[Rfam]
RNA sequence: GCGCCCUUAGCUCAGUCGGAUAGAGUCGCUGGCUUCGAACCAGUUGGUCGGGGGUUCGAGUCCCUCAGGGCGCA
Numbered sequence: 001g002c003g004c005c006c007u008u009a010g011c012u013c014a015g016u017c018g019g020a021u022a023g024a025g026u027c028g029c030u031g032g033c034u035u036c037g038a039a040c041c042a043g044u045u046g047g048u049c050g051g052g053g054g055u056u057c058g059a060g061u062c063c064c065u066c067a068g069g070g071c072g073c074a
Stems, first nucleotide, its partner, number of pairs: 001073007010026004028044005050066005

Notes: This 74-nucleotide RNA from Thermotalea metallivorans belongs to the Rfam family "tRNA". Taxonomically the source falls in Thermotalea (Bacteria, Bacillota, Clostridia, Peptostreptococcales). The match comes from Rfam's covariance-model search (65 bits). The base pairs follow the family's consensus structure, which is taken from published work. Its family is annotated with triplet codon-amino acid adaptor activity in the Gene Ontology. Transfer RNA (tRNA) molecules are approximately 80 nucleotides in length.